[Rfam]
RNA sequence: GUUUAAUAAUAUAUUUGCUUUCAUAUAUCCUCGAUAAUAUGGUUCGAAAGUUUCUACCGAGGUACCUUAAAUACCUUGACUAUGAAGGCCGAAUAUCUAGAU
Numbered sequence: 001g002u003u004u005a006a007u008a009a010u011a012u013a014u015u016u017g018c019u020u021u022c023a024u025a026u027a028u029c030c031u032c033g034a035u036a037a038u039a040u041g042g043u044u045c046g047a048a049a050g051u052u053u054c055u056a057c058c059g060a061g062g063u064a065c066c067u068u069a070a071a072u073a074c075c076u077u078g079a080c081u082a083u084g085a086a087g088g089c090c091g092a093a094u095a096u097c098u099a100g101a102u
Base pairs, nucleotide, nucleotide: 018088019087020086021085022084023083024082025081031047032046033045034044058078059077060076061075062074063073064072